Shown here is a 164-nucleotide RNA sequence from Gammaproteobacteria bacterium ESL0073, a member of the family "radC RNA". The match comes from Rfam's covariance-model search (45 bits). Rfam classes the family as a cis-regulatory element.

[Rfam]
RNA sequence: AUAAUCAAGGCAUGUUCGCUAACGUGAUUAGCAACAUGACCCAGGCUGACACGACCUUUAAGUCUGCGGUAGGUCUUUGAACCUACAGGUUGAAAAAUACCCCAUUUAGUAUUCCGUUCUGCUGGGGGGAUUACAGUGGUUACCCAUAUUACUGUAAAGGAUAC
Number, nucleotide and partner (000 for none) at each position: 001a000002u000003a000004a000005u000006c000007a000008a000009g000010g000011c038012a037013u036014g035015u033016u000017c000018g032019c031020u030021a029022a028023c000024g000025u000026g000027a000028u022029u021030a020031g019032c018033a015034a000035c014036a013037u012038g011039a000040c000041c000042c000043a000044g000045g067046c066047u000048g064049a063050c062051a000052c000053g091054a090055c089056c088057u000058u000059u000060a000061a000062g050063u049064c048065u000066g046067c045068g000069g086070u085071a084072g083073g082074u081075c000076u000077u000078u000079g000080a000081a074082c073083c072084u071085a070086c069087a000088g056089g055090u054091u053092g000093a000094a000095a000096a000097a000098u000099a000100c000101c000102c000103c000104a000105u000106u000107u000108a000109g000110u000111a000112u000113u000114c000115c000116g000117u000118u000119c000120u000121g000122c000123u000124g000125g000126g164127g000128g000129g000130a000131u157132u156133a155134c154135a153136g152137u151138g150139g149140u148141u000142a000143c000144c000145c000146a000147u000148a140149u139150u138151a137152c136153u135154g134155u133156a132157a131158a000159g000160g000161a000162u000163a000164c126